The record is an 82-nucleotide RNA sequence from Petromyzon marinus, which matches "mir-218 microRNA precursor family" in Rfam. On this family, see Chen et al., Genes Dev 2005: "The developmental miRNA profiles of zebrafish as determined by small RNA cloning".
Nucleotides: 082
Stems, first nucleotide, its partner, number of pairs: 001082004006077004013070007024059007
Number, partner (000 for none) and nucleotide at each position: 001082c002081g003080g004079u005000u006077u007076u008075c009074c010000g011000u012000u013070g014069u015068g016067c017066u018065u019064g020000a021000u022000c023000u024059a025058a026057c027056c028055a029054u030053g031000c032000g033000a034000u035000g036000g037000g038000g039000a040000g041000c042000u043000a044000c045000g046000g047000u048000a049000a050000c051000a052000c053030c054029a055028u056027g057026g058025u059024u060000c061000u062000g063000u064019c065018a066017a067016g068015c069014a070013c071000c072000a073000c074009g075008g076007g077006a078000c079004g080003c081002c082001g
Background: Lineage of the source: Eukaryota > Metazoa > Vertebrata > Petromyzontiformes > Petromyzon.